A member of the RNA family "DUF3800-X RNA", 73 nucleotides long. Rfam's curators put it in the seed alignment. The family's consensus secondary structure is taken from published work. By type it is a small RNA.
RNA sequence: CAGUGAGUAAGUCCCUCUUGAAAAGAAUGAGGCUACUUUGGUGUGGUGUGACGAAGUAAAGAGGGCUUCACUC
Numbered sequence: 001c002a003g004u005g006a007g008u009a010a011g012u013c014c015c016u017c018u019u020g021a022a023a024a025g026a027a028u029g030a031g032g033c034u035a036c037u038u039u040g041g042u043g044u045g046g047u048g049u050g051a052c053g054a055a056g057u058a059a060a061g062a063g064g065g066c067u068u069c070a071c072u073c
Stems, first nucleotide, its partner, number of pairs: 002072005013065007033046004